[Rfam]
RNA sequence: CUACAAUGAUGACACUCAUAUUUUGUUACCUAUUUUUUCUGGCAUCUCUAAUGCUAGAGCAGCGACGUUUAAGUACUUUCCUGCUCGAUGAAUAUAAACAAAUGACUACAAGACUGACA
Numbered sequence: 001c002u003a004c005a006a007u008g009a010u011g012a013c014a015c016u017c018a019u020a021u022u023u024u025g026u027u028a029c030c031u032a033u034u035u036u037u038u039c040u041g042g043c044a045u046c047u048c049u050a051a052u053g054c055u056a057g058a059g060c061a062g063c064g065a066c067g068u069u070u071a072a073g074u075a076c077u078u079u080c081c082u083g084c085u086c087g088a089u090g091a092a093u094a095u096a097a098a099c100a101a102a103u104g105a106c107u108a109c110a111a112g113a114c115u116g117a118c119a
Base pairs, nucleotide, nucleotide: 058085059084060083061082